Rfam assigns this 113-nucleotide RNA sequence from Medicago truncatula to the family "MIR2593 microRNA precursor family". A search with the family's covariance model found it, with a score of 98 bits. The base pairs follow the family's consensus structure, which was predicted with RNAalifold.

Nucleotides: 113
Stems, first nucleotide, its partner, number of pairs: 001113005007107005013101002017097008026088018048066004
Number, partner (000 for none) and nucleotide at each position: 001113a002112u003111a004110u005109a006000a007107a008106c009105a010104a011103a012000u013101u014100u015000u016000a017097c018096u019095u020094u021093u022092u023091a024090g025000g026088u027087u028086c029085a030084u031083u032082c033081a034080a035079u036078u037077a038076a039075u040074g041073a042072u043071g044000u045000a046000u047000g048066u049065g050064g051063u052000c053000u054000a055000u056000a057000a058000u059000a060000u061000g062000a063051a064050c065049c066048a067000c068000a069000u070000a071043c072042a073041u074040c075039a076038u077037u078036a079035a080034u081033u082032g083031a084030a085029u086028g087027a088026a089000c090024c091023u092022a093021a094020a095019a096018a097017g098000u099000c100014a101013a102000u103011u104010u105009u106008g107007u108000u109005u110004a111003u112002a113001u